[Rfam]
RNA sequence: AUGUAGUGUGACAUGCCCGUGUGGGAUAUACUCUAAUGAUUAUUUAAUAUUUAAUUGUUUUUGGGUUACGGGGUGUUACAGGCCUCA
Numbered sequence: 001a002u003g004u005a006g007u008g009u010g011a012c013a014u015g016c017c018c019g020u021g022u023g024g025g026a027u028a029u030a031c032u033c034u035a036a037u038g039a040u041u042a043u044u045u046a047a048u049a050u051u052u053a054a055u056u057g058u059u060u061u062u063g064g065g066u067u068a069c070g071g072g073g074u075g076u077u078a079c080a081g082g083c084c085u086c087a
Stems, first nucleotide, its partner, number of pairs: 002087002006083001007080008016072006

Shown here is an 87-nucleotide RNA sequence from Medicago truncatula, a member of the family "MIR2617 microRNA precursor family". Lineage of the source: Eukaryota > Euphyllophyta > Spermatophyta > Fabaceae > Medicago.